[Rfam]
RNA sequence: GAAGUCCUACGGUGUAAGGUACAAGCUAUACUGCAUCAAGCAAGUCUUGGGUGGACAGCAGUGAUGCUGCUUGUAAGAGUAGACAGCGAGAAUGCAGGACAUAGCCGCAUAUAGCUUCGACAUGAAAAUGGGAAGGCAGAAGUGCUCCUAUACACUGAAGGCAAUACAGCUGUAGUCGUUAAGAGCGAGAAUGUAGCUUUUUCCCCGGGGGUUUCACACA
Dot-bracket structure: ..........((((...((.(...[[..).)).))))..((..(((((..((((.(((((....))))).))))....).)))).)).......................(...(((((..........((((((((...((((........))))....)).....(((((((.((.......]]..)).))))))).)))))))))))...)......